[Rfam]
The record is an 85-nucleotide RNA from Herbinix hemicellulosilytica, which matches "c-di-GMP-I-GGC riboswitch aptamer" in Rfam.
RNA sequence: UGCGACAAAGGCAAACUUAGCGAAAGCUAGGGACGCAAAGCUAUGGGCCUUCCAGAUUAUGCUGAUGGCUGCCAGGCUGCCCAAU
Number, nucleotide and partner (000 for none) at each position: 001u000002g000003c000004g081005a000006c000007a000008a000009a000010g000011g036012c035013a000014a000015a000016c031017u030018u029019a028020g027021c026022g000023a000024a000025a000026g021027c020028u019029a018030g017031g016032g000033a000034c071035g012036c011037a000038a000039a078040g077041c076042u075043a000044u074045g073046g072047g069048c068049c067050u000051u000052c000053c000054a000055g000056a000057u000058u000059a000060u000061g000062c000063u000064g000065a000066u000067g049068g048069c047070u000071g034072c046073c045074a044075g042076g041077c040078u039079g000080c000081c004082c000083a000084a000085u000
It scores 67 bits against the family's covariance model.